A member of the RNA family "Small nucleolar RNA SNORD94" from Turnix velox, 142 nucleotides long. The literature on the family includes a 2002 paper in Mol Cell Biol by Galardi et al., "Purified box C/D snoRNPs are able to reproduce site-specific 2'-O-methylation of target RNA in vitro". It scores 124 bits against the family's covariance model. The base pairs follow the family's consensus structure, which was predicted with RNAalifold. The source organism's lineage runs through Eukaryota, Metazoa, Archelosauria, Aves and Turnix.
RNA sequence: AUGGCUGUGAUGAUUGGCGCAGGGGUACGGACCUCAGCUAGAUAAUGGGAGCUGAAUGCAAGCUGUUUGUUUCUGUGCAGCUGGCAUGUGGCUGGCUCACUGGAAACAGGUUUGCAUGAGACUUUGCCAGAAUCUGAGCCAU
Numbered sequence: 001a002u003g004g005c006u007g008u009g010a011u012g013a014u015u016g017g018c019g020c021a022g023g024g025g026u027a028c029g030g031a032c033c034u035c036a037g038c039u040a041g042a043u044a045a046u047g048g049g050a051g052c053u054g055a056a057u058g059c060a061a062g063c064u065g066u067u068u069g070u071u072u073c074u075g076u077g078c079a080g081c082u083g084g085c086a087u088g089u090g091g092c093u094g095g096c097u098c099a100c101u102g103g104a105a106a107c108a109g110g111u112u113u114g115c116a117u118g119a120g121a122c123u124u125u126g127c128c129a130g131a132a133u134c135u136g137a138g139c140c141a142u
Base pairs, nucleotide, nucleotide: 001142002141003140004139005138